[Rfam]
A member of the RNA family "Gag/pol translational readthrough site" from Cricetulus griseus, 62 nucleotides long. The family's RNA type in Rfam is cis-regulatory element. Its family is annotated with viral translational readthrough in the Gene Ontology. The literature on the family includes a 1990 paper in Virus Genes by ten Dam et al., "RNA pseudoknots: translational frameshifting and readthrough on viral RNAs".

RNA sequence: UAGGGGAGUUGGGGCUCGGUCCCCCUCCCCGAGCCUAGGGUAACUCUCUCUGUGGAGGGGAA
Numbered sequence: 001u002a003g004g005g006g007a008g009u010u011g012g013g014g015c016u017c018g019g020u021c022c023c024c025c026u027c028c029c030c031g032a033g034c035c036u037a038g039g040g041u042a043a044c045u046c047u048c049u050c051u052g053u054g055g056a057g058g059g060g061a062a
Stems, first nucleotide, its partner, number of pairs: 008041003012036004016031001018029002022060006